[Rfam]
Rfam assigns this 58-nucleotide RNA from Crinalium epipsammum to the family "Nitrogen stress-induced RNA 1". The match comes from Rfam's covariance-model search (45 bits). For this family Rfam cites "Heterocyst-specific transcription of NsiR1, a non-coding RNA encoded in a tandem array of direct repeats in cyanobacteria" (Ionescu et al., J Mol Biol, 2010). Pairs were carried over by alignment from the consensus structure.
RNA sequence: UGGUAGAUGCACCCUAAACAUUAACAUCCCCAGCUACUCUAGGCUGGGGUUUUUUGUU
Numbered sequence: 001u002g003g004u005a006g007a008u009g010c011a012c013c014c015u016a017a018a019c020a021u022u023a024a025c026a027u028c029c030c031c032a033g034c035u036a037c038u039c040u041a042g043g044c045u046g047g048g049g050u051u052u053u054u055u056g057u058u
Stems, first nucleotide, its partner, number of pairs: 002013003028049008036040001
Dot-bracket structure: .(((......)))..............(((((((((...).)))))))).........